RNA sequence: UGUGGCCGCCGCGACUGGCGAAGGUGGAGUACCACCGGGGAGCGGCUGCCGGACCUGUUAGGCGUCGUCCGCCUGGGCGCCUCCG
Numbered sequence: 001u002g003u004g005g006c007c008g009c010c011g012c013g014a015c016u017g018g019c020g021a022a023g024g025u026g027g028a029g030u031a032c033c034a035c036c037g038g039g040g041a042g043c044g045g046c047u048g049c050c051g052g053a054c055c056u057g058u059u060a061g062g063c064g065u066c067g068u069c070c071g072c073c074u075g076g077g078c079g080c081c082u083c084c085g
Stems, first nucleotide, its partner, number of pairs: 003051004008046005015039002017073004024035004062080005